[Rfam]
Record summary: Antisense RNA which regulates isiA expression: a 178-nucleotide RNA sequence from Anabaena cylindrica. It scores 134 bits against the family's covariance model.
RNA sequence: GAUAGCCAUAGAUAAUAAAGGGAUUGAGAGUGGGAUUUGUGACAACUCUGACAUCAUGAAUUGUUGAGUCAUAUAUUCCUCCCCAAAACAUCGCUUUUCCCACCAAUAAUAAGGCUGCUAUGCCUAAAAAUAGGAGGUGAUGACCCAAAAUCAAUCCUAGUUGUUUGUGAUCAUUCCA
Numbered sequence: 001g002a003u004a005g006c007c008a009u010a011g012a013u014a015a016u017a018a019a020g021g022g023a024u025u026g027a028g029a030g031u032g033g034g035a036u037u038u039g040u041g042a043c044a045a046c047u048c049u050g051a052c053a054u055c056a057u058g059a060a061u062u063g064u065u066g067a068g069u070c071a072u073a074u075a076u077u078c079c080u081c082c083c084c085a086a087a088a089c090a091u092c093g094c095u096u097u098u099c100c101c102a103c104c105a106a107u108a109a110u111a112a113g114g115c116u117g118c119u120a121u122g123c124c125u126a127a128a129a130a131u132a133g134g135a136g137g138u139g140a141u142g143a144c145c146c147a148a149a150a151u152c153a154a155u156c157c158u159a160g161u162u163g164u165u166u167g168u169g170a171u172c173a174u175u176c177c178a
Stems, first nucleotide, its partner, number of pairs: 136175006144169001146167003
Rfam 15.1 lists 3,397 matches to the family in 659 species.